[Rfam]
RNA sequence: GGUCAUGAGUGCCAGCGACAAGCCCCGGCUUGCUGGUCGGCAACCCUCGCGCUCGCGGCGGGGUGCCCCGGGUGAAGACCAGGUCCGGCGCGCGGUGCGCCGGGCAAGCGCGGGCU
Dot-bracket structure: ((((....(.((((((....((......)).)))))))(((..(((.(.(......))..))).))).........))))..((((((((((...))))))))))...........
Shown here is a 116-nucleotide RNA from Sinosporangium album, a member of the family "SAM (S-adenosyl methionine) riboswitch aptamer". Lineage of the source: Bacteria > Actinomycetota > Actinomycetes > Streptosporangiales > Sinosporangium. Rfam links the family to the GO terms regulation of gene expression and S-adenosylmethionine metabolic process. The family is grouped with related families in Rfam's "SAM clan".